Prion pseudoknot: a 40-nucleotide RNA. Rfam 15.1 lists 421 matches to the family in 241 species. It is one of the family's seed sequences. By type it is a cis-regulatory element.
RNA sequence: CCAUGGUGGUGGCUGGGGACAGCCUCAUGGUGGCAGCUGG
Numbered sequence: 001c002c003a004u005g006g007u008g009g010u011g012g013c014u015g016g017g018g019a020c021a022g023c024c025u026c027a028u029g030g031u032g033g034c035a036g037c038u039g040g
Stems, first nucleotide, its partner, number of pairs: 001030006

Background: Rfam describes the family as follows. This family represents a predicted pseudoknot structure found in prion protein mRNA. It has been suggested that the family has a possible effect in prion protein translation. For this family Rfam cites "Pseudoknots in prion protein mRNAs confirmed by comparative sequence analysis and pattern searching" (Barrette et al., Nucleic Acids Res, 2001).